[Rfam]
Small nucleolar RNA SNORD116: a 92-nucleotide RNA from Aotus nancymaae. The family has 48 seed sequences and 3,260 matches in Rfam 15.1. The family's consensus secondary structure was predicted with PFOLD. A search with the family's covariance model found it, with a score of 51 bits.
Nucleotides: 092
Base pairs, nucleotide, nucleotide: 002091003090004089005088028058029057030056031055034050037048
Number, partner (000 for none) and nucleotide at each position: 001000a002091g003090a004089u005088u006000g007000a008000u009000g010000a011000u012000g013000a014000c015000a016000c017000c018000c019000c020000c021000a022000u023000a024000a025000a026000a027000c028058c029057a030056u031055u032000c033000c034050u035000c036000a037048g038000g039000a040000a041000a042000u043000c044000u045000g046000a047000a048037c049000a050034a051000a052000a053000u054000a055031a056030g057029u058028g059000a060000a061000a062000a063000c064000u065000c066000a067000c068000g069000a070000g071000u072000c073000g074000u075000u076000c077000u078000c079000a080000u081000c082000g083000a084000g085000g086000c087000u088005g089004g090003u091002c092000c